A member of the RNA family "MIR7991 microRNA precursor family" from Solanum commersonii, 47 nucleotides long. Lineage of the source: Eukaryota > Viridiplantae > Embryophyta > Euphyllophyta > Solanum.
[Rfam]
Nucleotides: 047
Base pairs, nucleotide, nucleotide: 001045002044003043004042006040007039008038009037013035014034015033016032017031018030020028021027
Number, partner (000 for none) and nucleotide at each position: 001045a002044g003043g004042a005000u006040g007039u008038u009037g010000a011000a012000a013035u014034u015033u016032u017031u018030a019000a020028u021027g022000a023000a024000u025000u026000a027021c028020a029000a030018u031017a032016a033015a034014a035013a036000c037009c038008g039007a040006c041000u042004u043003c044002u045001u046000g047000a
Its family is annotated with miRNA-mediated post-transcriptional gene silencing and RISC complex in the Gene Ontology.